[Rfam]
RNA: Small nucleolar RNA SNORD34
Organism: Stegodyphus mimosarum
RNA sequence: GCUUGUAUAUGAUGAUUGAUAUUCUUACAUACAUUGUUUGAUUAUCAUUGAAAAGUAAAAAGUAUCUGAUACAGUU
Dot-bracket structure: (..((((..............................................................))))..)